[Rfam]
Nucleotides: 213
Stems, first nucleotide, its partner, number of pairs: 001135005013124004025113002029110003035051005052095007136151003
Number, partner (000 for none) and nucleotide at each position: 001135g002134g003133c004132a005131a006000u007000a008000a009000a010000c011000g012000c013124g014123c015122g016121c017000g018000u019000a020000a021000u022000a023000a024000g025113c026112g027000g028000a029110u030109c031108g032000g033000a034000c035051c036050c037049g038048g039047g040000g041000g042000c043000g044000g045000u046000a047039c048038c049037c050036g051035g052095c053094g054093g055092c056091u057090c058089c059000a060000c061000c062000a063000a064000c065000a066000c067000a068000u069000c070000c071000u072000g073000u074000c075000a076000u077000u078000u079000g080000c081000a082000g083000g084000g085000g086000c087000u088000u089058g090057g091056g092055g093054c094053c095052g096000a097000a098000a099000c100000a101000g102000g103000a104000u105000a106000g107000a108031c109030g110029g111000a112026c113025g114000u115000c116000u117000a118000a119000a120000g121016g122015u123014g124013u125000u126000a127000g128000c129000u130000u131005u132004u133003g134002c135001u136151c137150g138149g139000c140000a141000g142000g143000a144000u145000g146000c147000c148000a149138c150137c151136g152000u153000u154000a155000u156000c157000g158000g159000c160000u161000c162000g163000a164000a165000u166000u167000g168000u169000a170000c171000a172000g173000u174000u175000g176000c177000a178000a179000a180000u181000g182000a183000c184000a185000a186000c187000a188000g189000u190000g191000c192000u193000c194000c195000g196000g197000u198000u199000g200000c201000a202000g203000u204000c205000g206000c207000u208000g209000c210000g211000u212000a213000a
Rfam assigns this 213-nucleotide RNA sequence from Rubricella aquisinus to the family "permuted transfer-messenger RNA". By type it is a non-coding RNA gene. Rfam links the family to the GO term RNA catabolic process.